[Rfam]
RNA: Bacterial RNase P class B
Organism: Turicibacter sp. H121
RNA sequence: GCAUUCGGGUAAUUGCGCUGUCAUUUAUGACGGUGAGGAAAGUCCAUGCUCGCACAACCUGCGAUGGUUGUAGUGUUCGUGCCUAACGAAACAAUAAGUUAGGGCAGUCAAGUUUCUUGGCUGACGGCUGGGAAAAUACCUAAGUCGUAAGAUAUGGUAUGAGUACCUUUAAAAGUGCCACAGUGACGAUGUCAAUCGGAAACGAGAGACGUGGAACGGGUAAACCCCACGAGCGAGAAACCCAAAUUUGGUAGGGGCACUCCUAAAGCGGAAUUGAACGCAUAUGGGAGGUAGAGAGUCAUCUCUACAGACAGAUAAUUACCACCUAAGUACGAGGAGGCAUCCGUUUGAGUACGACGGUACAGAACAUGGCUUACAGAU
Numbered sequence: 001g002c003a004u005u006c007g008g009g010u011a012a013u014u015g016c017g018c019u020g021u022c023a024u025u026u027a028u029g030a031c032g033g034u035g036a037g038g039a040a041a042g043u044c045c046a047u048g049c050u051c052g053c054a055c056a057a058c059c060u061g062c063g064a065u066g067g068u069u070g071u072a073g074u075g076u077u078c079g080u081g082c083c084u085a086a087c088g089a090a091a092c093a094a095u096a097a098g099u100u101a102g103g104g105c106a107g108u109c110a111a112g113u114u115u116c117u118u119g120g121c122u123g124a125c126g127g128c129u130g131g132g133a134a135a136a137u138a139c140c141u142a143a144g145u146c147g148u149a150a151g152a153u154a155u156g157g158u159a160u161g162a163g164u165a166c167c168u169u170u171a172a173a174a175g176u177g178c179c180a181c182a183g184u185g186a187c188g189a190u191g192u193c194a195a196u197c198g199g200a201a202a203c204g205a206g207a208g209a210c211g212u213g214g215a216a217c218g219g220g221u222a223a224a225c226c227c228c229a230c231g232a233g234c235g236a237g238a239a240a241c242c243c244a245a246a247u248u249u250g251g252u253a254g255g256g257g258c259a260c261u262c263c264u265a266a267a268g269c270g271g272a273a274u275u276g277a278a279c280g281c282a283u284a285u286g287g288g289a290g291g292u293a294g295a296g297a298g299u300c301a302u303c304u305c306u307a308c309a310g311a312c313a314g315a316u317a318a319u320u321a322c323c324a325c326c327u328a329a330g331u332a333c334g335a336g337g338a339g340g341c342a343u344c345c346g347u348u349u350g351a352g353u354a355c356g357a358c359g360g361u362a363c364a365g366a367a368c369a370u371g372g373c374u375u376a377c378a379g380a381u
Stems, first nucleotide, its partner, number of pairs: 005380002007377001008323007016035006040375003044372005049237005054071006077232005082103006104125001105123008126227002130168003137159004144153003175225002177221003191210003196205003241256003260290006291308006325360002330355004